[Rfam]
RNA sequence: UUCUUAUCGAGAGCGGCGGAGGGACUGGCCCGAUGAAGCCCGGCAACCUUCCCGGCGCGGGGAGCCGAGAGGCCUCCUCGCCUGCGGGCGCACGGUGUGCCCCGGGAAAGGUGCCAACUCCUGCGGCCGCACCGGCGGCCGAAAGAUAAGAA
Dot-bracket structure: ((((((((....(.(((...(((.[.[[)))......))))((((.((((((...................................................))))..))))))...(]].]((((((......))))))..)))))))))
Numbered sequence: 001u002u003c004u005u006a007u008c009g010a011g012a013g014c015g016g017c018g019g020a021g022g023g024a025c026u027g028g029c030c031c032g033a034u035g036a037a038g039c040c041c042g043g044c045a046a047c048c049u050u051c052c053c054g055g056c057g058c059g060g061g062g063a064g065c066c067g068a069g070a071g072g073c074c075u076c077c078u079c080g081c082c083u084g085c086g087g088g089c090g091c092a093c094g095g096u097g098u099g100c101c102c103c104g105g106g107a108a109a110g111g112u113g114c115c116a117a118c119u120c121c122u123g124c125g126g127c128c129g130c131a132c133c134g135g136c137g138g139c140c141g142a143a144a145g146a147u148a149a150g151a152a
Stems, first nucleotide, its partner, number of pairs: 001152008013041001015040003021031003025123001027121002042115004047111002049107004119144001124141006
Shown here is a 152-nucleotide RNA from Hydrogenibacillus schlegelii, a member of the family "SAM riboswitch aptamer (S box leader)".
NCBI's taxonomy places the organism under Bacteria, Bacillati, Bacillota, Thermicanales, Hydrogenibacillus.